[Rfam]
RNA sequence: CGACCUGGUGGCCCACGACGUAACUACUUAAAGAACCAAGAGAAAAAAACCCAACCCCACCCCACCUGAUGCCGGUGGUCAGCUGCGGGAGGGCUCGUCACUCGCGCGGGUGAGGUUUGCCGACUGAGCUGGAUUUCGGCCCGGUUGGCAGGCAUAUGCUCGCGCUGAUCGACCUUCGAUCCACCUUCAGACGUCAGACAGCCCCCGGCCGGGACGGCAAUCCCGAACCGAGGGCCUAACCAACAAGGAAGCAGCAUCUUCCCG
Numbered sequence: 001c002g003a004c005c006u007g008g009u010g011g012c013c014c015a016c017g018a019c020g021u022a023a024c025u026a027c028u029u030a031a032a033g034a035a036c037c038a039a040g041a042g043a044a045a046a047a048a049a050c051c052c053a054a055c056c057c058c059a060c061c062c063c064a065c066c067u068g069a070u071g072c073c074g075g076u077g078g079u080c081a082g083c084u085g086c087g088g089g090a091g092g093g094c095u096c097g098u099c100a101c102u103c104g105c106g107c108g109g110g111u112g113a114g115g116u117u118u119g120c121c122g123a124c125u126g127a128g129c130u131g132g133a134u135u136u137c138g139g140c141c142c143g144g145u146u147g148g149c150a151g152g153c154a155u156a157u158g159c160u161c162g163c164g165c166u167g168a169u170c171g172a173c174c175u176u177c178g179a180u181c182c183a184c185c186u187u188c189a190g191a192c193g194u195c196a197g198a199c200a201g202c203c204c205c206c207g208g209c210c211g212g213g214a215c216g217g218c219a220a221u222c223c224c225g226a227a228c229c230g231a232g233g234g235c236c237u238a239a240c241c242a243a244c245a246a247g248g249a250a251g252c253a254g255c256a257u258c259u260u261c262c263c264g
Base pairs, nucleotide, nucleotide: 007244009242010241098113099112100111101110102109103108128163129162131161132160201235202234203233204232206230207229208228211224212223213222214221247262248261249260250259251258

The family of this 264-nucleotide RNA from Streptomyces sp. PTY087I2 is "Streptomyces sRNA 4677". On this family, see Hindra et al., PLoS One 2014: "Complex intra-operonic dynamics mediated by a small RNA in Streptomyces coelicolor". NCBI's taxonomy places the organism under Bacteria, Bacillati, Actinomycetes, Streptomycetaceae, Streptomyces. The family's RNA type in Rfam is small RNA.